RNA sequence: CGUUCCGAGGAGCGUUGCGACAGAGAGGUCCCUCUCUGCCAGGCUCGGAUAUCCAAGCAACUGCGCUCACGUUAC
Numbered sequence: 001c002g003u004u005c006c007g008a009g010g011a012g013c014g015u016u017g018c019g020a021c022a023g024a025g026a027g028g029u030c031c032c033u034c035u036c037u038g039c040c041a042g043g044c045u046c047g048g049a050u051a052u053c054c055a056a057g058c059a060a061c062u063g064c065g066c067u068c069a070c071g072u073u074a075c
Stems, first nucleotide, its partner, number of pairs: 004049005021038006

The record is a 75-nucleotide RNA from Massilia timonae, which matches "SAH (S-adenosyl-L-homocysteine) riboswitch aptamer" in Rfam.
A search with the family's covariance model found it, with a score of 60 bits.